The record is a 162-nucleotide RNA sequence from Medicago truncatula, which matches "MIR2619 microRNA precursor family" in Rfam. The match comes from Rfam's covariance-model search (148 bits). The family's consensus secondary structure was predicted with RNAalifold.

[Rfam]
RNA sequence: AAACAGCCCCCUAUGUUUUGAUUCUUUGGUAGUUUUGGACCCCCAAGGCAAAAAAAAAAAAAAAAAAUUGACACAUGGCACCUCACUUAGGGUGCCACGUCAGUGUUAACAAUGGGCUCGGGGUCUAAAACUGCCAAAGAAUCAAAACAUAGGGGGGUGUUU
Number, nucleotide and partner (000 for none) at each position: 001a162002a161003a000004c159005a158006g000007c156008c155009c000010c000011c000012u151013a150014u149015g148016u147017u146018u145019u144020g143021a142022u141023u140024c139025u138026u137027u136028g135029g134030u133031a132032g131033u130034u129035u128036u127037g126038g125039a124040c123041c122042c121043c120044c000045a118046a000047g000048g000049c000050a000051a000052a000053a000054a000055a000056a000057a000058a000059a000060a000061a000062a000063a000064a000065a000066a000067a000068u000069u000070g000071a000072c000073a100074c099075a000076u097077g096078g095079c094080a093081c092082c091083u000084c000085a000086c000087u000088u000089a000090g000091g082092g081093u080094g079095c078096c077097a076098c000099g074100u073101c000102a000103g000104u000105g000106u000107u000108a000109a000110c000111a000112a000113u000114g000115g000116g000117c000118u045119c000120g043121g042122g041123g040124u039125c038126u037127a036128a035129a034130a033131c032132u031133g030134c029135c028136a027137a026138a025139g024140a023141a022142u021143c020144a019145a018146a017147a016148c015149a014150u013151a012152g000153g000154g000155g008156g007157g000158u005159g004160u000161u002162u001